[Rfam]
RNA sequence: AUCCUAUUUUCACCGUAGUAGCAUUUUAGUUAUAAAAGUGAAGUGGGAACGGGGGAACCAUUAUUUGGGGCGUAUCUCUAACUAUAGUGAAAAGGUAGAGAAGAGCAACUCUCAGCCCUAGCCCGUCAGCUAACUCCGUCGGCAUAGAGAGGGGACUG
Number, nucleotide and partner (000 for none) at each position: 001a000002u048003c047004c046005u045006a044007u043008u042009u041010u040011c000012a000013c000014c000015g000016u000017a000018g000019u000020a000021g000022c000023a000024u000025u000026u000027u000028a000029g000030u000031u000032a000033u000034a000035a000036a000037a000038g000039u000040g010041a009042a008043g007044u006045g005046g004047g003048a002049a139050c138051g137052g136053g135054g134055g000056a000057a000058c000059c067060a066061u000062u000063a000064u000065u000066u060067g059068g124069g123070g122071c000072g000073u000074a000075u000076c100077u099078c098079u097080a000081a000082c000083u000084a000085u000086a000087g000088u000089g000090a000091a000092a000093a000094g000095g000096u000097a079098g078099a077100g076101a000102a000103g118104a000105g116106c115107a000108a000109c000110u000111c000112u000113c000114a000115g106116c105117c000118c103119u000120a000121g000122c070123c069124c068125g000126u000127c000128a000129g000130c000131u000132a000133a000134c054135u053136c052137c051138g050139u049140c000141g000142g000143c000144a000145u000146a000147g000148a000149g000150a000151g000152g000153g000154g000155a000156c000157u000158g000
Description: The record is a 158-nucleotide sequence from Pleurocapsales cyanobacterium LEGE 06147, which matches "c-di-AMP riboswitch aptamer (ydaO/yuaA leader)" in Rfam. It scores 61 bits against the family's covariance model.